[Rfam]
FMN riboswitch aptamer (RFN element): a 166-nucleotide RNA from Arsenophonus sp. ENCA.
The source organism's lineage runs through Bacteria, Pseudomonadati, Pseudomonadota, Gammaproteobacteria and Arsenophonus.
RNA sequence: UGUUUAUCUCAGGGCGGAGUGAAAUUCUCCACCGGCGGUGAUAUUUAUUCUGCUAAUUGAAUAAUUAAGUCCGCGAGCGUUCCAUUAUAGCAUUUUGUGAUGGAAGUCAGCAGAUCCAGUGAGAUUCUGGAACCGACGGUUAUAGUCCGGAUGGGAGAGAAUAACG
Numbered sequence: 001u002g003u004u005u006a007u008c009u010c011a012g013g014g015c016g017g018a019g020u021g022a023a024a025u026u027c028u029c030c031a032c033c034g035g036c037g038g039u040g041a042u043a044u045u046u047a048u049u050c051u052g053c054u055a056a057u058u059g060a061a062u063a064a065u066u067a068a069g070u071c072c073g074c075g076a077g078c079g080u081u082c083c084a085u086u087a088u089a090g091c092a093u094u095u096u097g098u099g100a101u102g103g104a105a106g107u108c109a110g111c112a113g114a115u116c117c118a119g120u121g122a123g124a125u126u127c128u129g130g131a132a133c134c135g136a137c138g139g140u141u142a143u144a145g146u147c148c149g150g151a152u153g154g155g156a157g158a159g160a161a162u163a164a165c166g
Stems, first nucleotide, its partner, number of pairs: 003164002007160004017029003031146002033135002035074004069133002077111002115131005137149003